[Rfam]
RNA sequence: GCUGCGGGCCGUGACUGGCGCGCUGGGAUGGGACCGACCAUCGGGAAGCGGCCCGUACGGGAACAUGUGCCGUGCGCCUGGGCCGAACCG
Numbered sequence: 001g002c003u004g005c006g007g008g009c010c011g012u013g014a015c016u017g018g019c020g021c022g023c024u025g026g027g028a029u030g031g032g033a034c035c036g037a038c039c040a041u042c043g044g045g046a047a048g049c050g051g052c053c054c055g056u057a058c059g060g061g062a063a064c065a066u067g068u069g070c071c072g073u074g075c076g077c078c079u080g081g082g083c084c085g086a087a088c089c090g
Stems, first nucleotide, its partner, number of pairs: 003057010015045002017078005028041004069083003